[Rfam]
RNA sequence: UCGCAGCAUUCUGGAGAGACCCGCUUCCCGAUCCGGGCGCGGGCGCCGAAGGUGAACCCCCUGCAGUGCGGGGCAACUCUCAGGCAAAAGGACAGAAGGGCGCUG
Numbered sequence: 001u002c003g004c005a006g007c008a009u010u011c012u013g014g015a016g017a018g019a020c021c022c023g024c025u026u027c028c029c030g031a032u033c034c035g036g037g038c039g040c041g042g043g044c045g046c047c048g049a050a051g052g053u054g055a056a057c058c059c060c061c062u063g064c065a066g067u068g069c070g071g072g073g074c075a076a077c078u079c080u081c082a083g084g085c086a087a088a089a090g091g092a093c094a095g096a097a098g099g100g101c102g103c104u105g
Base pairs, nucleotide, nucleotide: 007099009097010096011095012094013093020043021042022041023040045085046084047083048081049080052079054077058072059071

The family of this 105-nucleotide RNA sequence from Castellaniella defragrans is "Glycine riboswitch aptamer". The match comes from Rfam's covariance-model search (60 bits). The pairing is the family consensus, mapped onto this sequence.